[Rfam]
RNA sequence: CCACGGCCUAGCUUUAGCGGGCGAAAAGCUGGCUCCUUCACCAGCCUGGCCGUGGUCCCUUUUCAAUGAAGG
Numbered sequence: 001c002c003a004c005g006g007c008c009u010a011g012c013u014u015u016a017g018c019g020g021g022c023g024a025a026a027a028g029c030u031g032g033c034u035c036c037u038u039c040a041c042c043a044g045c046c047u048g049g050c051c052g053u054g055g056u057c058c059c060u061u062u063u064c065a066a067u068g069a070a071g072g
Base pairs, nucleotide, nucleotide: 001055002054003053004052005051006050007049008048011022012021013020014019028045029044030043031042032041035072036071037070038069039068040067
Annotation:
This 72-nucleotide RNA from Pseudoduganella namucuonensis belongs to the Rfam family "int-alpA RNA". It scores 65 bits against the family's covariance model. Rfam classes the family as a small RNA. NCBI's taxonomy places the organism under Bacteria, Betaproteobacteria, Burkholderiales, Oxalobacteraceae, Pseudoduganella.